[Rfam]
Rfam assigns this 109-nucleotide sequence from Streptomyces sp. SID8352 to the family "Streptomyces RNA 4115".
Taxonomically the source falls in Streptomyces (Bacteria, Actinomycetota, Actinomycetes, Streptomycetaceae).
A search with the family's covariance model found it, with a score of 100 bits.
It is annotated as a small RNA.
On this family, see Vockenhuber et al., RNA Biol 2011: "Deep sequencing-based identification of small non-coding RNAs in Streptomyces coelicolor".
Identified by deep sequencing of transcriptome at the end of exponential growth phase.
RNA sequence: GCGUGGGUCGGCCCGCUGUACUGGGUCCAGUGGGCUGGGGGACGCCGCCGCCUACAUCCCCGCGGGCGGCGGACCGGUCCGGGGGGCAUGCCUCGCCUCCCGGGCCGCG
Numbered sequence: 001g002c003g004u005g006g007g008u009c010g011g012c013c014c015g016c017u018g019u020a021c022u023g024g025g026u027c028c029a030g031u032g033g034g035c036u037g038g039g040g041g042a043c044g045c046c047g048c049c050g051c052c053u054a055c056a057u058c059c060c061c062g063c064g065g066g067c068g069g070c071g072g073a074c075c076g077g078u079c080c081g082g083g084g085g086g087c088a089u090g091c092c093u094c095g096c097c098u099c100c101c102g103g104g105c106c107g108c109g
Base pairs, nucleotide, nucleotide: 001108002107006075007074008073009037010036011035012034013033014032015031016030017029018028038043045072046071047070048069049068050067051066052065053064055062076106077105078104079103080102081101082100083099084098085097086096087095